The record is a 114-nucleotide sequence from Hemibagrus wyckioides, which matches "Potassium channel RNA editing signal" in Rfam.
RNA sequence: GUUGGCUAUGGUGACAUGGUCCCAGUCACUAUAGGGGGCAAAAUUGUAGGCUCUCUGUGUGCAAUCGCUGGUGUGCUGACCAUUGCCCUACCAGUGCCUGUCAUCGUAUCCAAC
Numbered sequence: 001g002u003u004g005g006c007u008a009u010g011g012u013g014a015c016a017u018g019g020u021c022c023c024a025g026u027c028a029c030u031a032u033a034g035g036g037g038g039c040a041a042a043a044u045u046g047u048a049g050g051c052u053c054u055c056u057g058u059g060u061g062c063a064a065u066c067g068c069u070g071g072u073g074u075g076c077u078g079a080c081c082a083u084u085g086c087c088c089u090a091c092c093a094g095u096g097c098c099u100g101u102c103a104u105c106g107u108a109u110c111c112a113a114c
Stems, first nucleotide, its partner, number of pairs: 001114002004111002007108005013102004018097001021094001037077004050062002
It is annotated as a cis-regulatory element. Pairs were carried over by alignment from the consensus structure, which is taken from published work. The match comes from Rfam's covariance-model search (116 bits). Rfam's curators write: This family represents a group of sequences related to the human potassium channel Kv1.1 hairpin element which directs the efficient modification of an adenosine to inosine by an adenosine deaminase acting on RNA (ADAR).